[Rfam]
Record summary: Rfam assigns this 94-nucleotide sequence from Hydrogenophaga crocea to the family "SAH (S-adenosyl-L-homocysteine) riboswitch aptamer".
RNA sequence: GUUCUCAAGGAGCGUUGCAGCGCCCGUCCCCGCCACGGGGCAUCGGGCGUCAGGCUUGAGCGGGCAUGACCAGCCCCAACGACGCUCACCAGAC
Numbered sequence: 001g002u003u004c005u006c007a008a009g010g011a012g013c014g015u016u017g018c019a020g021c022g023c024c025c026g027u028c029c030c031c032g033c034c035a036c037g038g039g040g041c042a043u044c045g046g047g048c049g050u051c052a053g054g055c056u057u058g059a060g061c062g063g064g065c066a067u068g069a070c071c072a073g074c075c076c077c078a079a080c081g082a083c084g085c086u087c088a089c090c091a092g093a094c
Stems, first nucleotide, its partner, number of pairs: 002062001004060005021049006

Its family is annotated with regulation of gene expression and S-adenosylhomocysteine metabolic process in the Gene Ontology.